[Rfam]
RNA sequence: GGUUUAAAGGGUGCGUAGGCGGCCAAUUAAGUCAGGGGUGAAAGACGGUAGCUUAACUAUCGCAGUGCCUUUGAUACUGAUUGGCUUGAAUGGACUAGAGGUAGGCGGAAUGUGACAAGUAGCGGUGAAAUGCAUAGAUAUGUCACAGAACACCAAUUGCGAAGGCAGCUUACUAUGGUUUAAUUGACGCUGAGGCACGAAAGCGUGGGGAUCAAACAGGAUUAGAUACCCUGGUAGUCCACGCCCUAAACGAUGAACACUCGAUGUUAGCGAUAUACAGUUAGCGUCUAAGCGAAAGCGUUAAGUGUUCCACCUGGGGAGUACGCCCGCAAGGGUGAAACUCAAAGGAAU
Numbered sequence: 001g002g003u004u005u006a007a008a009g010g011g012u013g014c015g016u017a018g019g020c021g022g023c024c025a026a027u028u029a030a031g032u033c034a035g036g037g038g039u040g041a042a043a044g045a046c047g048g049u050a051g052c053u054u055a056a057c058u059a060u061c062g063c064a065g066u067g068c069c070u071u072u073g074a075u076a077c078u079g080a081u082u083g084g085c086u087u088g089a090a091u092g093g094a095c096u097a098g099a100g101g102u103a104g105g106c107g108g109a110a111u112g113u114g115a116c117a118a119g120u121a122g123c124g125g126u127g128a129a130a131u132g133c134a135u136a137g138a139u140a141u142g143u144c145a146c147a148g149a150a151c152a153c154c155a156a157u158u159g160c161g162a163a164g165g166c167a168g169c170u171u172a173c174u175a176u177g178g179u180u181u182a183a184u185u186g187a188c189g190c191u192g193a194g195g196c197a198c199g200a201a202a203g204c205g206u207g208g209g210g211a212u213c214a215a216a217c218a219g220g221a222u223u224a225g226a227u228a229c230c231c232u233g234g235u236a237g238u239c240c241a242c243g244c245c246c247u248a249a250a251c252g253a254u255g256a257a258c259a260c261u262c263g264a265u266g267u268u269a270g271c272g273a274u275a276u277a278c279a280g281u282u283a284g285c286g287u288c289u290a291a292g293c294g295a296a297a298g299c300g301u302u303a304a305g306u307g308u309u310c311c312a313c314c315u316g317g318g319g320a321g322u323a324c325g326c327c328c329g330c331a332a333g334g335g336u337g338a339a340a341c342u343c344a345a346a347g348g349a350a351u
Stems, first nucleotide, its partner, number of pairs: 001314003009311001011198004016192001018191003022085007030078002032074009046062006089185003092181006100174007107151001111147007122133003159166002203244006213237001217233004255310006263288009292299002316343003325336004
Shown here is a 351-nucleotide part of an RNA from Mucilaginibacter gracilis, a member of the family "Bacterial small subunit ribosomal RNA".
The family's consensus secondary structure is taken from published work.
It scores 1525 bits against the family's covariance model.
Lineage of the source: Bacteria > Bacteroidota > Sphingobacteriales > Sphingobacteriaceae > Mucilaginibacter.
The family has 99 seed sequences and 42,628 matches in Rfam 15.1.